RNA sequence: UUAUACAAGGGUCAAGAAAUCAGAAAUCGUUCCUGCUUGCAGGAUAAGAUUUCUGACUUGUUGACCCGCUCACACAUGAGGAAGUAGCGAUUUCCUUUUGGAAAUCGGCGGAUUCCGAAUGUGUGUAGAAUUGCGGGAGUUGCACAGCAACGGAGCAAUUCGUGUAUCA
Numbered sequence: 001u002u003a004u005a006c007a008a009g010g011g012u013c014a015a016g017a018a019a020u021c022a023g024a025a026a027u028c029g030u031u032c033c034u035g036c037u038u039g040c041a042g043g044a045u046a047a048g049a050u051u052u053c054u055g056a057c058u059u060g061u062u063g064a065c066c067c068g069c070u071c072a073c074a075c076a077u078g079a080g081g082a083a084g085u086a087g088c089g090a091u092u093u094c095c096u097u098u099u100g101g102a103a104a105u106c107g108g109c110g111g112a113u114u115c116c117g118a119a120u121g122u123g124u125g126u127a128g129a130a131u132u133g134c135g136g137g138a139g140u141u142g143c144a145c146a147g148c149a150a151c152g153g154a155g156c157a158a159u160u161c162g163u164g165u166a167u168c169a
Stems, first nucleotide, its partner, number of pairs: 001169001003167005010066004017059002020056009030046001031044005071125007080116004087109002089106007128161007139151004
The record is a 169-nucleotide sequence from Roseburia zhanii, which matches "Clostridiales-1 RNA" in Rfam. Rfam classes the family as a small RNA.